[Rfam]
RNA: Arthropod 7SK RNA
Organism: Cyphomyrmex costatus
RNA sequence: GGAAGCGUGUGCUAGUGAUGGCACAACUGAACAUUGAUCGCUAACGUAGAGCUAUGGCAGAUCUGCUCAGUGGGUGUUGUCACGUUGUCGUAAGCUUCAAGUAGCUUUGAGUGUCAGACUCCCGAUUGCGCAUGCAUCUUCGUGGCUUGUCUCUUACGACCACGGAUUUGCACGCCUGCACGGUCUGAGUCUUCACGUCACUCCUCGAAGUACCGCGAUUUCCAAAUUGGGGGGCAAUCGAAUAGGUCAGACGAGGUAAUUUGUCGCUUCCAUAUGCAGGCACUGCUGAUGGCGGUACGCCAUUUUUUG
Numbered sequence: 001g002g003a004a005g006c007g008u009g010u011g012c013u014a015g016u017g018a019u020g021g022c023a024c025a026a027c028u029g030a031a032c033a034u035u036g037a038u039c040g041c042u043a044a045c046g047u048a049g050a051g052c053u054a055u056g057g058c059a060g061a062u063c064u065g066c067u068c069a070g071u072g073g074g075u076g077u078u079g080u081c082a083c084g085u086u087g088u089c090g091u092a093a094g095c096u097u098c099a100a101g102u103a104g105c106u107u108u109g110a111g112u113g114u115c116a117g118a119c120u121c122c123c124g125a126u127u128g129c130g131c132a133u134g135c136a137u138c139u140u141c142g143u144g145g146c147u148u149g150u151c152u153c154u155u156a157c158g159a160c161c162a163c164g165g166a167u168u169u170g171c172a173c174g175c176c177u178g179c180a181c182g183g184u185c186u187g188a189g190u191c192u193u194c195a196c197g198u199c200a201c202u203c204c205u206c207g208a209a210g211u212a213c214c215g216c217g218a219u220u221u222c223c224a225a226a227u228u229g230g231g232g233g234g235c236a237a238u239c240g241a242a243u244a245g246g247u248c249a250g251a252c253g254a255g256g257u258a259a260u261u262u263g264u265c266g267c268u269u270c271c272a273u274a275u276g277c278a279g280g281c282a283c284u285g286c287u288g289a290u291g292g293c294g295g296u297a298c299g300c301c302a303u304u305u306u307u308u309g
Stems, first nucleotide, its partner, number of pairs: 001271007015083005027070003032065002036063004040058004046052001279301003282296005